[Rfam]
RNA sequence: AGUUCUGAUGCACCGAAUUUGCAGGUGGAGAACGAGGAGACAGUCGAGGCACGAAGUGCCCGCGAGAAAGCGCUGUUGGACGGAAUCCAACAGCGCUUUUCU
Numbered sequence: 001a002g003u004u005c006u007g008a009u010g011c012a013c014c015g016a017a018u019u020u021g022c023a024g025g026u027g028g029a030g031a032a033c034g035a036g037g038a039g040a041c042a043g044u045c046g047a048g049g050c051a052c053g054a055a056g057u058g059c060c061c062g063c064g065a066g067a068a069a070g071c072g073c074u075g076u077u078g079g080a081c082g083g084a085a086u087c088c089a090a091c092a093g094c095g096c097u098u099u100u101c102u
Stems, first nucleotide, its partner, number of pairs: 002033004009029001011027004015022001045062002048060005067099014
Source information
The record is a 102-nucleotide RNA sequence from Trinickia symbiotica, which matches "Burkholderia sRNA 1" in Rfam. The literature on the family includes a 2017 paper in Sci Rep by Sass et al., "Identification of small RNAs abundant in Burkholderia cenocepacia biofilms reveal putative regulators with a potential role in carbon and iron metabolism". The family's RNA type in Rfam is small RNA. Rfam's curators write: Identified by RNA-seq, RACE and Northern blot. Strongly expressed in biofilm. The family's consensus secondary structure was predicted with RNAfold.